[Rfam]
RNA: Bacterial small signal recognition particle RNA
Organism: Rothia amarae
RNA sequence: UAUGCCCCUUACGUGGCAUCAUCUUGGAAAACUCCCCCAGGGCCGGAAGGCAGCAAGGGUAUCUGAGCUCUGAUGGGUGCGUAAGGGGUCUUUUU
Dot-bracket structure: ...(((((((((((..(((((.((((((.....(((.....(((....))).....)))..))))))...))))).)..))))))))))......